The family of this 82-nucleotide RNA sequence from Oryzias latipes is "Small nucleolar RNA SNORD100". The family's consensus secondary structure was predicted with RNAalifold. By type it is a C/D-box small nucleolar RNA. The family is grouped with related families in Rfam's "SNORD100 clan". Gene Ontology terms of the family: nucleolus and RNA processing.

[Rfam]
RNA sequence: UAUUUCUGUGAUGAUAUCCUGGCUCCCUCUGCUGAACAUCAUGUGGAAGUCUGCCAUCGUUACCCAAUGUCUGUCUGAGAUA
Numbered sequence: 001u002a003u004u005u006c007u008g009u010g011a012u013g014a015u016a017u018c019c020u021g022g023c024u025c026c027c028u029c030u031g032c033u034g035a036a037c038a039u040c041a042u043g044u045g046g047a048a049g050u051c052u053g054c055c056a057u058c059g060u061u062a063c064c065c066a067a068u069g070u071c072u073g074u075c076u077g078a079g080a081u082a
Stems, first nucleotide, its partner, number of pairs: 001082006